[Rfam]
RNA sequence: ACUGGGAGCGUGGCGCCUUCUGUAAUCCAAGCUGCUUGGAGGUCGGGUUCAGUGGAUGGUUUGAGAUCGGGAGUCCUGGUGCGGAGCGUUUCACGUCGACCGGAUGUCCGCACUAAGCUCGGCGUCAAUAUGGCCGUACCGGAGGAGUCCGGAACGGCCAGGUUGGCCAAGGAGAGGCGAACCGGGCCAGAGGGGAAACCCAGCAGCCAAAAGUCUCCGCGUCGUGCAGUAGUGGGAUCGCGUCUGGGAGUGGGAACUUUGUAACAGCCCGAUCAAUACAGCUAAACCUGGACCUUU
Numbered sequence: 001a002c003u004g005g006g007a008g009c010g011u012g013g014c015g016c017c018u019u020c021u022g023u024a025a026u027c028c029a030a031g032c033u034g035c036u037u038g039g040a041g042g043u044c045g046g047g048u049u050c051a052g053u054g055g056a057u058g059g060u061u062u063g064a065g066a067u068c069g070g071g072a073g074u075c076c077u078g079g080u081g082c083g084g085a086g087c088g089u090u091u092c093a094c095g096u097c098g099a100c101c102g103g104a105u106g107u108c109c110g111c112a113c114u115a116a117g118c119u120c121g122g123c124g125u126c127a128a129u130a131u132g133g134c135c136g137u138a139c140c141g142g143a144g145g146a147g148u149c150c151g152g153a154a155c156g157g158c159c160a161g162g163u164u165g166g167c168c169a170a171g172g173a174g175a176g177g178c179g180a181a182c183c184g185g186g187c188c189a190g191a192g193g194g195g196a197a198a199c200c201c202a203g204c205a206g207c208c209a210a211a212a213g214u215c216u217c218c219g220c221g222u223c224g225u226g227c228a229g230u231a232g233u234g235g236g237a238u239c240g241c242g243u244c245u246g247g248g249a250g251u252g253g254g255a256a257c258u259u260u261g262u263a264a265c266a267g268c269c270c271g272a273u274c275a276a277u278a279c280a281g282c283u284a285a286a287c288c289u290g291g292a293c294c295u296u297u
Stems, first nucleotide, its partner, number of pairs: 001043003004021005026040003045295008057284005065274007076267003080263007090254005096248001100247008108236002111234005117227002120224006126165004131160007139152005167171001174217005185208003192201003
The family of this 297-nucleotide RNA sequence from Brassicogethes aeneus is "Metazoan signal recognition particle RNA".
It scores 246 bits against the family's covariance model.
Rfam classes the family as a non-coding RNA gene.
The family's consensus secondary structure is taken from published work.
The family has 91 seed sequences and 383,523 matches in Rfam 15.1.
For this family Rfam cites "Towards the structure of the mammalian signal recognition particle" (Wild et al., Curr Opin Struct Biol, 2002).